RNA sequence: ACCUUAUCAAGAGCGGCGGAGGGAACGGCCCGAUGAAGCCCGGCAACCUGCGGAGGAAGGAAAACUCUGCAAGGUGCUAAAUCCGGCGGCAGUGGAUCGAAAGAUGAGGG
Numbered sequence: 001a002c003c004u005u006a007u008c009a010a011g012a013g014c015g016g017c018g019g020a021g022g023g024a025a026c027g028g029c030c031c032g033a034u035g036a037a038g039c040c041c042g043g044c045a046a047c048c049u050g051c052g053g054a055g056g057a058a059g060g061a062a063a064a065c066u067c068u069g070c071a072a073g074g075u076g077c078u079a080a081a082u083c084c085g086g087c088g089g090c091a092g093u094g095g096a097u098c099g100a101a102a103g104a105u106g107a108g109g110g
Base pairs, nucleotide, nucleotide: 002109003108004107005106006105007104008103013041015040016039017038021031022030023029026085027084028083042078043077044076045075047074048073049071050070051069052068053067054066055065082102087099088098089097
Rfam assigns this 110-nucleotide RNA from Pseudoflavonifractor sp. An184 to the family "SAM riboswitch aptamer (S box leader)".